[Rfam]
RNA sequence: AUAAGUUUGAGGCCAUAGCAGAAGCAUUCAUGGUAUGGCCAUGUCAGAUUCCAACUAAAUCUGUAAAUUCUGUU
Numbered sequence: 001a002u003a004a005g006u007u008u009g010a011g012g013c014c015a016u017a018g019c020a021g022a023a024g025c026a027u028u029c030a031u032g033g034u035a036u037g038g039c040c041a042u043g044u045c046a047g048a049u050u051c052c053a054a055c056u057a058a059a060u061c062u063g064u065a066a067a068u069u070c071u072g073u074u
Stems, first nucleotide, its partner, number of pairs: 008041001011040004017074007024036001026034001045063006

A member of the RNA family "Mammalian CPEB3 ribozyme" from Alligator sinensis, 74 nucleotides long. The source organism's lineage runs through Eukaryota, Deuterostomia, Vertebrata, Alligatorinae and Alligator. The literature on the family includes a 2006 paper in Science by Salehi-Ashtiani et al., "A genomewide search for ribozymes reveals an HDV-like sequence in the human CPEB3 gene".